[Rfam]
RNA sequence: UCACACCGCGCGGGAGAGUCCUCGGCCCUCGGGCCGCGGCGCCGAAGGGGCAACACUCCCCGGAACCUCUCAGGCCCAAGGACCGCGCGGGACAG
Numbered sequence: 001u002c003a004c005a006c007c008g009c010g011c012g013g014g015a016g017a018g019u020c021c022u023c024g025g026c027c028c029u030c031g032g033g034c035c036g037c038g039g040c041g042c043c044g045a046a047g048g049g050g051c052a053a054c055a056c057u058c059c060c061c062g063g064a065a066c067c068u069c070u071c072a073g074g075c076c077c078a079a080g081g082a083c084c085g086c087g088c089g090g091g092a093c094a095g
Stems, first nucleotide, its partner, number of pairs: 006090008020039002023036003041075003044071002048069003054062001
The family of this 95-nucleotide RNA from Phycicoccus sp. HDW14 is "Glycine riboswitch aptamer". The literature on the family includes a 2017 paper in MBio by Babina et al., "In Vivo Behavior of the Tandem Glycine Riboswitch in Bacillus subtilis". Its family is annotated with glycine biosynthetic process in the Gene Ontology. Lineage of the source: Bacteria > Bacillati > Actinomycetes > Micrococcales > Phycicoccus. This family represents the bacterial glycine riboswitch.